[Rfam]
A member of the RNA family "Actino-pnp RNA" from Xylanimonas ulmi, 65 nucleotides long. By type it is a cis-regulatory element.
RNA sequence: ACCGGUCCUCGGUCGAGGUACCGGUCCUCAAUCACCGAGGACCGGUACCUCGACCGAGGACCGGU
Numbered sequence: 001a002c003c004g005g006u007c008c009u010c011g012g013u014c015g016a017g018g019u020a021c022c023g024g025u026c027c028u029c030a031a032u033c034a035c036c037g038a039g040g041a042c043c044g045g046u047a048c049c050u051c052g053a054c055c056g057a058g059g060a061c062c063g064g065u
Base pairs, nucleotide, nucleotide: 001065002064003063004062005061006060007059009057010056011055012054013053017049018048019047020046021045022044023043024042025041026040027039028038